Overview: Rfam assigns this 142-nucleotide RNA sequence from Salvia splendens to the family "Small nucleolar RNA F1/F2/snoR5a". Gene Ontology terms of the family: RNA processing and nucleolus. This family contains F1, F2 and snoR5a sequences, all of which are members of the the H/ACA class of snoRNA that guide the sites of modification of uridines to pseudouridines.
RNA sequence: UAAUGCCCUUGGUAUCUAAUGUCAAGAACUGUAUUAUAUGUCUUGAUGUUUCGUUUUUGAUGGCACAAAACAACUUGAACAGACCUUGCGACACAGAUUGCUUCUCUAUAAGUUUUCUGUUACUAAUUUCCUGUCUACAUAU
Numbered sequence: 001u002a003a004u005g006c007c008c009u010u011g012g013u014a015u016c017u018a019a020u021g022u023c024a025a026g027a028a029c030u031g032u033a034u035u036a037u038a039u040g041u042c043u044u045g046a047u048g049u050u051u052c053g054u055u056u057u058u059g060a061u062g063g064c065a066c067a068a069a070a071c072a073a074c075u076u077g078a079a080c081a082g083a084c085c086u087u088g089c090g091a092c093a094c095a096g097a098u099u100g101c102u103u104c105u106c107u108a109u110a111a112g113u114u115u116u117c118u119g120u121u122a123c124u125a126a127u128u129u130c131c132u133g134u135c136u137a138c139a140u141a142u
Stems, first nucleotide, its partner, number of pairs: 004065004018050010029040001031039001079134004093120005100113003